[Rfam]
RNA sequence: CGCUCAUCAAGACCGGCUGAGGGAUAGGCCCUUUGACGCCGGGGCAACCAUCGGGGACACCCCCCGAAACGGUGCCAACUCCUGCGGGGAUUCCGUCACCGGAUUCCGCGAGAGAUGAGGG
Numbered sequence: 001c002g003c004u005c006a007u008c009a010a011g012a013c014c015g016g017c018u019g020a021g022g023g024a025u026a027g028g029c030c031c032u033u034u035g036a037c038g039c040c041g042g043g044g045c046a047a048c049c050a051u052c053g054g055g056g057a058c059a060c061c062c063c064c065c066g067a068a069a070c071g072g073u074g075c076c077a078a079c080u081c082c083u084g085c086g087g088g089g090a091u092u093c094c095g096u097c098a099c100c101g102g103a104u105u106c107c108g109c110g111a112g113a114g115a116u117g118a119g120g121g
Stems, first nucleotide, its partner, number of pairs: 001121001003119006013042005021031003025084004043076004048072002051067005080113001085110002088107003
RNA: SAM riboswitch aptamer (S box leader)